[Rfam]
RNA sequence: GGGGAGCAUCUAUGAGGUAAGAUGUUGCCCGAUACAAUCUUCCCACAGUAAAACUCUCAUAAUCUGCUUGAGGUACUUGAGAGAGUUCUUCAAGUUGUUGAUCAGGAGGCACAUAA
Numbered sequence: 001g002g003g004g005a006g007c008a009u010c011u012a013u014g015a016g017g018u019a020a021g022a023u024g025u026u027g028c029c030c031g032a033u034a035c036a037a038u039c040u041u042c043c044c045a046c047a048g049u050a051a052a053a054c055u056c057u058c059a060u061a062a063u064c065u066g067c068u069u070g071a072g073g074u075a076c077u078u079g080a081g082a083g084a085g086u087u088c089u090u091c092a093a094g095u096u097g098u099u100g101a102u103c104a105g106g107a108g109g110c111a112c113a114u115a116a
Stems, first nucleotide, its partner, number of pairs: 001030003005026007055109003066095008075086003
A member of the RNA family "Small nucleolar RNA snoR104" from Anisodus acutangulus, 116 nucleotides long. The family's RNA type in Rfam is H/ACA-box small nucleolar RNA. A reference for the family is Marker et al. (2002), "Experimental RNomics: identification of 140 candidates for small non-messenger RNAs in the plant Arabidopsis thaliana", Curr Biol.